RNA sequence: ACGAUGUUCCGCUGUCGCGAAUUCUUCGGAUACGAACAUUAG
Numbered sequence: 001a002c003g004a005u006g007u008u009c010c011g012c013u014g015u016c017g018c019g020a021a022u023u024c025u026u027c028g029g030a031u032a033c034g035a036a037c038a039u040u041a042g
Stems, first nucleotide, its partner, number of pairs: 003040007013032002015029003
The family of this 42-nucleotide RNA from Pelagirhabdus alkalitolerans is "Ribosomal protein L19 leader". The source organism's lineage runs through Bacteria, Bacillota, Caryophanales, Bacillaceae and Pelagirhabdus. Gene Ontology term of the family: regulation of gene expression. This family is a putative r-protein leader autoregulatory structure found in B. subtilis and other low-GC Gram-positive bacteria. It is located in the 5' untranslated regions of mRNAs encoding ribosomal protein L19 (rplS).